[Rfam]
RNA: U4atac minor spliceosomal RNA
RNA sequence: ACCAUCUUUGUCUUGGGGUGAGCGGCCGCCCAAUGAGCGCAUAGCGAGAGCGGCACUGCUGACACAAGUAACAACACAAUAGUGCCCCCGGUGUGCAAACACUGGCACGGUACAAUUUUUGGAACC
Numbered sequence: 001a002c003c004a005u006c007u008u009u010g011u012c013u014u015g016g017g018g019u020g021a022g023c024g025g026c027c028g029c030c031c032a033a034u035g036a037g038c039g040c041a042u043a044g045c046g047a048g049a050g051c052g053g054c055a056c057u058g059c060u061g062a063c064a065c066a067a068g069u070a071a072c073a074a075c076a077c078a079a080u081a082g083u084g085c086c087c088c089c090g091g092u093g094u095g096c097a098a099a100c101a102c103u104g105g106c107a108c109g110g111u112a113c114a115a116u117u118u119u120u121g122g123a124a125c126c
Stems, first nucleotide, its partner, number of pairs: 006018004020059001022057001025054005031048001037045002082113005089104006